The record is an 80-nucleotide sequence, which matches "Twister_sister_ribozyme" in Rfam. On this family, see Weinberg et al., Nat Chem Biol 2015: "New classes of self-cleaving ribozymes revealed by comparative genomics analysis". Pairs were carried over by alignment from the consensus structure, which is taken from published work.
RNA sequence: AAUCAUCGCAAGGCCCGCGCGAAAGCGUGAACGGUGCAAGUCCGUUGCCCUCUUCGGAGGGUGGCGCUCAUGGUGUUCAU
Numbered sequence: 001a002a003u004c005a006u007c008g009c010a011a012g013g014c015c016c017g018c019g020c021g022a023a024a025g026c027g028u029g030a031a032c033g034g035u036g037c038a039a040g041u042c043c044g045u046u047g048c049c050c051u052c053u054u055c056g057g058a059g060g061g062u063g064g065c066g067c068u069c070a071u072g073g074u075g076u077u078c079a080u
Stems, first nucleotide, its partner, number of pairs: 004075004013065003016040001018027003030046004047062006
Dot-bracket structure: ...((((.....((([.(((....)))..((((......]..))))((((((....)))))))))......)))).....